[Rfam]
Background:
Shown here is a 92-nucleotide sequence from Faecalibacterium duncaniae, a member of the family "pemK RNA". NCBI's taxonomy places the organism under Bacteria, Bacillati, Eubacteriales, Oscillospiraceae, Faecalibacterium. The family's RNA type in Rfam is cis-regulatory element.
RNA sequence: UGAUACUCCCUUACCGUCAAAGUCCGAGCGUUCAGAGCGUCGCAGGCAAUGAGUAGGGCUGCAUGAGAAAUGCAGGGGUGAGAUUCCCGUGG
Numbered sequence: 001u002g003a004u005a006c007u008c009c010c011u012u013a014c015c016g017u018c019a020a021a022g023u024c025c026g027a028g029c030g031u032u033c034a035g036a037g038c039g040u041c042g043c044a045g046g047c048a049a050u051g052a053g054u055a056g057g058g059c060u061g062c063a064u065g066a067g068a069a070a071u072g073c074a075g076g077g078g079u080g081a082g083a084u085u086c087c088c089g090u091g092g
Stems, first nucleotide, its partner, number of pairs: 008089001009058006059075003063071002076088003